[Rfam]
RNA sequence: CUCUCCUACAAAGGCGUGUUUUUGGUCUCCUAUCCUUGAACACGUAAGAAUGGGAGGCAAAGAAAUGUGGAUUUGGAGAAAUCUGGGGCCAGCAUGCUCCUUGCAGGCUCAAGAUCAACCAUCCCACAUAG
Number, nucleotide and partner (000 for none) at each position: 001c000002u057003c056004u055005c054006c053007u000008a000009c000010a000011a000012a000013g000014g000015c044016g043017u042018g041019u040020u039021u038022u000023u000024g030025g029026u000027c000028u000029c025030c024031u000032a000033u000034c000035c000036u000037u000038g021039a020040a019041c018042a017043c016044g015045u000046a000047a000048g000049a000050a000051u000052g000053g006054g005055a004056g003057g002058c000059a000060a000061a000062g000063a000064a000065a000066u000067g000068u000069g124070g123071a122072u000073u121074u000075g000076g000077a000078g000079a000080a000081a000082u000083c000084u000085g000086g000087g000088g000089c000090c000091a109092g108093c107094a000095u105096g104097c103098u000099c000100c000101u000102u000103g097104c096105a095106g000107g093108c092109u091110c000111a000112a000113g000114a000115u000116c000117a000118a000119c000120c000121a073122u071123c070124c069125c000126a000127c000128a000129u000130a000131g000

Shown here is a 131-nucleotide sequence from Jaculus jaculus, a member of the family "Small nucleolar RNA SNORA38". The base pairs follow the family's consensus structure, which was predicted with RNAfold. The match comes from Rfam's covariance-model search (149 bits). Taxonomically the source falls in Jaculus (Eukaryota, Gnathostomata, Euteleostomi, Amniota). ACA38 is a member of the H/ACA class of snoRNA that guide the sites of modification of uridines to pseudouridines.